[Rfam]
RNA: MIR1862 microRNA precursor family
Nucleotides: 089
Stems, first nucleotide, its partner, number of pairs: 001088023025064005031058005037051003
Number, partner (000 for none) and nucleotide at each position: 001088u002087a003086c004085u005084u006083c007082c008081u009080c010079u011078g012077u013076c014075c015074c016073a017072g018071a019070a020069u021068a022067a023066g024000u025064u026063a027062a028061u029060c030000a031058a032057g033056u034055g035054c036000u037051g038050g039049a040000u041000g042000u043000a044000a045000c046000a047000c048000a049039u050038c051037c052000u053000a054035g055034u056033a057032c058031u059000a060029g061028a062027u063026u064025a065000c066023c067022u068021u069020a070019u071018u072017c073016u074015g075014g076013g077012a078011c079010a080009g081008a082007g083006g084005g085004a086003g087002u088001a089000g